[Rfam]
RNA sequence: AUAGACAUUUCGGGGUGCUACUUUUGUGGCUGAGAUUAUACCCAUUGAACCUGUACAGAUAAUGCUGGCGUAGGUAACAAAUGUUUAGGGCUUCU
Numbered sequence: 001a002u003a004g005a006c007a008u009u010u011c012g013g014g015g016u017g018c019u020a021c022u023u024u025u026g027u028g029g030c031u032g033a034g035a036u037u038a039u040a041c042c043c044a045u046u047g048a049a050c051c052u053g054u055a056c057a058g059a060u061a062a063u064g065c066u067g068g069c070g071u072a073g074g075u076a077a078c079a080a081a082u083g084u085u086u087a088g089g090g091c092u093u094c095u
Stems, first nucleotide, its partner, number of pairs: 006083005012043003016038001017030005050074004056067003
RNA: TPP riboswitch aptamer (THI element)
Organism: Nosocomiicoccus massiliensis